[Rfam]
RNA sequence: GUCCGGUGCGGCUACGGCUUCACCGGCGAGUCCUUGAAAACUUCAAGGGAGAGCCAAUCCUUCACCGCAAGGUGUAAACACAUGAACAAGU
Numbered sequence: 001g002u003c004c005g006g007u008g009c010g011g012c013u014a015c016g017g018c019u020u021c022a023c024c025g026g027c028g029a030g031u032c033c034u035u036g037a038a039a040a041c042u043u044c045a046a047g048g049g050a051g052a053g054c055c056a057a058u059c060c061u062u063c064a065c066c067g068c069a070a071g072g073u074g075u076a077a078a079c080a081c082a083u084g085a086a087c088a089a090g091u
Stems, first nucleotide, its partner, number of pairs: 003026006010019003063074004